[Rfam]
RNA sequence: GCCACAUGAUGUGAUGUAGCUUGCAUUAGCACUUUGUGCAAAGAUGACCUGCUAUCUAUCACCCUUGACUGAUGGCU
Numbered sequence: 001g002c003c004a005c006a007u008g009a010u011g012u013g014a015u016g017u018a019g020c021u022u023g024c025a026u027u028a029g030c031a032c033u034u035u036g037u038g039c040a041a042a043g044a045u046g047a048c049c050u051g052c053u054a055u056c057u058a059u060c061a062c063c064c065u066u067g068a069c070u071g072a073u074g075g076c077u
Base pairs, nucleotide, nucleotide: 001076002075003074004073029039030038031037032036
This 77-nucleotide RNA from Sinocyclocheilus rhinocerous belongs to the Rfam family "Small nucleolar RNA SNORD83". The family's consensus secondary structure was predicted with PFOLD. Taxonomically the source falls in Sinocyclocheilus (Eukaryota, Bilateria, Teleostei, Cyprininae).